This 74-nucleotide sequence from Xanthomonas campestris belongs to the Rfam family "Xanthomonas sRNA sX9". The family has 16 seed sequences and 309 matches in Rfam 15.1. Rfam classes the family as a small RNA. On this family, see Schmidtke et al., Nucleic Acids Res 2011: "Genome-wide transcriptome analysis of the plant pathogen Xanthomonas identifies sRNAs with putative virulence functions".

RNA sequence: GUGUACGUCGGUACAUGCCGAUUCCGAGCACCGGCCGCGCCCGCCUGGCGGCUGCUCGCUACGUGUUAUCAGCC
Numbered sequence: 001g002u003g004u005a006c007g008u009c010g011g012u013a014c015a016u017g018c019c020g021a022u023u024c025c026g027a028g029c030a031c032c033g034g035c036c037g038c039g040c041c042c043g044c045c046u047g048g049c050g051g052c053u054g055c056u057c058g059c060u061a062c063g064u065g066u067u068a069u070c071a072g073c074c
Stems, first nucleotide, its partner, number of pairs: 002015005019033002022030001024028001045072004050067002